A member of the RNA family "Selenocysteine insertion sequence 1" from Conger conger, 61 nucleotides long.
RNA sequence: UUUACUUUAUGAUGGCAUCCUUUGAAACCAAUGUGAGAGGGUUGUCUGAUGAACAUGUAAA
Number, nucleotide and partner (000 for none) at each position: 001u061002u060003u059004a058005c057006u000007u000008u000009a000010u000011g000012a000013u000014g046015g045016c044017a043018u000019c041020c040021u039022u038023u037024g000025a000026a000027a000028c000029c035030a034031a000032u000033g000034u030035g029036a000037g023038a022039g021040g020041g019042u000043u017044g016045u015046c014047u000048g000049a000050u000051g000052a000053a000054c000055a000056u000057g005058u004059a003060a002061a001